Overview
The record is a 65-nucleotide RNA sequence from Mytilus edulis, which matches "Selenocysteine insertion sequence 1" in Rfam. It is annotated as a cis-regulatory element. Lineage of the source: Eukaryota > Eumetazoa > Lophotrochozoa > Mollusca > Mytilus. It scores 35 bits against the family's covariance model. Rfam's curators write: The incorporation of selenocysteine into a protein sequence is directed by an in-frame UGA codon (usually a stop codon) within the coding region of the mRNA. Selenoprotein mRNAs contain a conserved secondary structure in the 3' UTR that is required for the distinction of UGA stop from UGA selenocysteine.
RNA sequence: CAUAUAUUUUAUGAUAGUAUGAUUCUAAAGCCCUAAUGGGAGGAAUUGUAUCUGAUUUUCAUAUG
Numbered sequence: 001c002a003u004a005u006a007u008u009u010u011a012u013g014a015u016a017g018u019a020u021g022a023u024u025c026u027a028a029a030g031c032c033c034u035a036a037u038g039g040g041a042g043g044a045a046u047u048g049u050a051u052c053u054g055a056u057u058u059u060c061a062u063a064u065g
Base pairs, nucleotide, nucleotide: 001065002064003063004062005061017051018050019049020048021047022046023045024044025043031040032039033038